[Rfam]
RNA: L17-Actino-Proteobacteria ribosomal protein leader
RNA sequence: GCGCCGGGCUUCGGCUUGGCGCUCACAGCCGCCGGCACCUGGCACGGCUGGAGCG
Numbered sequence: 001g002c003g004c005c006g007g008g009c010u011u012c013g014g015c016u017u018g019g020c021g022c023u024c025a026c027a028g029c030c031g032c033c034g035g036c037a038c039c040u041g042g043c044a045c046g047g048c049u050g051g052a053g054c055g
Stems, first nucleotide, its partner, number of pairs: 001022009028054001030053001032051005
Dot-bracket structure: (((((((((....))))))))).....(.(.(((((..........))))).)).